[Rfam]
6C RNA: a 76-nucleotide sequence from a Streptosporangiales bacterium. The base pairs follow the family's consensus structure, which is taken from published work. Rfam links the family to the GO term sporulation. The match comes from Rfam's covariance-model search (60 bits).
RNA sequence: AUCGGCCCGGCUCUACCCCCCCGGAGCCGGACCGUACGGCGACCCCCGCUCUACCCCCCGGCGGGGGUCGUCUCAU
Numbered sequence: 001a002u003c004g005g006c007c008c009g010g011c012u013c014u015a016c017c018c019c020c021c022c023g024g025a026g027c028c029g030g031a032c033c034g035u036a037c038g039g040c041g042a043c044c045c046c047c048g049c050u051c052u053a054c055c056c057c058c059c060g061g062c063g064g065g066g067g068u069c070g071u072c073u074c075a076u
Base pairs, nucleotide, nucleotide: 003034004033005032007030008029009028010027011026012025013024038072039071040070041069042068043067044066045065046064047063048062049061050060
Dot-bracket structure: ..(((.(((((((..........))))))).)))...(((((((((((((.........)))))))))))))....